[Rfam]
RNA sequence: UACUGUGGCAGUGAUGACUUAACUUUUUUCCCCGACAGAUCGACUCUGUUGAGUUUUGUAGAAAAUUAAGCCAAACUGUCUGAGCCAUGGUU
Numbered sequence: 001u002a003c004u005g006u007g008g009c010a011g012u013g014a015u016g017a018c019u020u021a022a023c024u025u026u027u028u029u030c031c032c033c034g035a036c037a038g039a040u041c042g043a044c045u046c047u048g049u050u051g052a053g054u055u056u057u058g059u060a061g062a063a064a065a066u067u068a069a070g071c072c073a074a075a076c077u078g079u080c081u082g083a084g085c086c087a088u089g090g091u092u
Base pairs, nucleotide, nucleotide: 002091003090004089005088006087007086008085009084